[Rfam]
RNA sequence: UUCUGUGGAUGAUGAGAAAAUUUUGAAAUCAGUUAUCCCUGGCUGAUUUUUCGUUGUUUAUGAUGACAUCUUGUGAUCUGACACGGAC
Numbered sequence: 001u002u003c004u005g006u007g008g009a010u011g012a013u014g015a016g017a018a019a020a021u022u023u024u025g026a027a028a029u030c031a032g033u034u035a036u037c038c039c040u041g042g043c044u045g046a047u048u049u050u051u052c053g054u055u056g057u058u059u060a061u062g063a064u065g066a067c068a069u070c071u072u073g074u075g076a077u078c079u080g081a082c083a084c085g086g087a088c
Stems, first nucleotide, its partner, number of pairs: 002087006
Overview:
Rfam assigns this 88-nucleotide RNA from Gossypium stocksii to the family "Small nucleolar RNA R38". The base pairs follow the family's consensus structure, which was predicted with PFOLD. The family has 19 seed sequences and 2,295 matches in Rfam 15.1. From the family's description: snoR38 is a C/D box small nucleolar RNA conserved across yeast, human, Arabidopsis and rice. It is encoded in the intron of elongation factor-1 gamma in both pombe and cerevisiae. snoR38 guides the methylation of 2'-O-ribose sites in 28S rRNA. Rfam classes the family as a C/D-box small nucleolar RNA. The source organism's lineage runs through Eukaryota, Streptophyta, Streptophytina, Pentapetalae and Gossypium.